This 66-nucleotide RNA sequence from Macrococcus lamae belongs to the Rfam family "S. aureus tsr31 small RNA". NCBI's taxonomy places the organism under Bacteria, Bacillota, Bacilli, Staphylococcaceae, Macrococcus.
RNA sequence: UCCUUUAAUUAGGACAAACGUAUAAACCAAUACGCUCCCUUUGCGAUUUGCAAAAGGAGCGUUUUU
Numbered sequence: 001u002c003c004u005u006u007a008a009u010u011a012g013g014a015c016a017a018a019c020g021u022a023u024a025a026a027c028c029a030a031u032a033c034g035c036u037c038c039c040u041u042u043g044c045g046a047u048u049u050g051c052a053a054a055a056g057g058a059g060c061g062u063u064u065u066u
Stems, first nucleotide, its partner, number of pairs: 001014004032062007040054006
The family's consensus secondary structure was predicted with RNAfold.